[Rfam]
RNA sequence: GGGAGGCUGAGGGGAAGGAGGCUCUAGUACGAGAGGAACGAGCCUCCGGCGCCACUGGUUUACCGGUUGUUCGGCAGGGCAUUGCCGGGCAGCUACGCGCUACGCGGUUAAAGGCUGAAAGCAUCUAAGCCUGAAACCGCCCCCGAAAAGAGCCUCCCCUAAGGGCGCCGCUAGAAGAGCGGUUUGAUAGGGCCGGGGUGUAAGCGGUGAGGCAACGAGCCGUUCAGCCCGCGGUCACUAAAGCCCGUG
Numbered sequence: 001g002g003g004a005g006g007c008u009g010a011g012g013g014g015a016a017g018g019a020g021g022c023u024c025u026a027g028u029a030c031g032a033g034a035g036g037a038a039c040g041a042g043c044c045u046c047c048g049g050c051g052c053c054a055c056u057g058g059u060u061u062a063c064c065g066g067u068u069g070u071u072c073g074g075c076a077g078g079g080c081a082u083u084g085c086c087g088g089g090c091a092g093c094u095a096c097g098c099g100c101u102a103c104g105c106g107g108u109u110a111a112a113g114g115c116u117g118a119a120a121g122c123a124u125c126u127a128a129g130c131c132u133g134a135a136a137c138c139g140c141c142c143c144c145g146a147a148a149a150g151a152g153c154c155u156c157c158c159c160u161a162a163g164g165g166c167g168c169c170g171c172u173a174g175a176a177g178a179g180c181g182g183u184u185u186g187a188u189a190g191g192g193c194c195g196g197g198g199u200g201u202a203a204g205c206g207g208u209g210a211g212g213c214a215a216c217g218a219g220c221c222g223u224u225c226a227g228c229c230c231g232c233g234g235u236c237a238c239u240a241a242a243g244c245c246c247g248u249g
Stems, first nucleotide, its partner, number of pairs: 001158008011144004017047008048101005056095003063088005068081005105139003112132005163246004167183005188240003191236005196230003204223005211216001
Rfam assigns this 249-nucleotide part of an RNA from Archaeoglobus sulfaticallidus to the family "Archaeal large subunit ribosomal RNA". It scores 2940 bits against the family's covariance model. Pairs were carried over by alignment from the consensus structure, which is taken from published work. Clan: LSU clan.